Shown here is a 75-nucleotide sequence from Musa balbisiana, a member of the family "Plastid-ycf2 5UTR RNA". It is annotated as a cis-regulatory element. Rfam describes the family as follows. Plastid ycf2 is a non-coding RNA (ncRNA) recognised in plastids. The literature on the family includes a 2023 paper in Plant Commun by Richter et al., "Retrograde signaling in plants: A critical review focusing on the GUN pathway and beyond".
[Rfam]
RNA sequence: GAGCCUCCAGCAGGAAUUGAACCGACGAGUUGCCAAUUCUGAGUUGGGCGCUUUAACCAUUCAGCCAUGGAUGGC
Numbered sequence: 001g002a003g004c005c006u007c008c009a010g011c012a013g014g015a016a017u018u019g020a021a022c023c024g025a026c027g028a029g030u031u032g033c034c035a036a037u038u039c040u041g042a043g044u045u046g047g048g049c050g051c052u053u054u055a056a057c058c059a060u061u062c063a064g065c066c067a068u069g070g071a072u073g074g075c
Stems, first nucleotide, its partner, number of pairs: 003075003006071003010026001013023002040067002043065006050058001